[Rfam]
RNA sequence: AACUAUAACCUAUGUAAGUCGCUCUGGGUAAGAGCAUCUGCUAAAUUCCAGUAA
Numbered sequence: 001a002a003c004u005a006u007a008a009c010c011u012a013u014g015u016a017a018g019u020c021g022c023u024c025u026g027g028g029u030a031a032g033a034g035c036a037u038c039u040g041c042u043a044a045a046u047u048c049c050a051g052u053a054a
Stems, first nucleotide, its partner, number of pairs: 013043001014041003021035005
RNA: UnaL2 LINE 3' element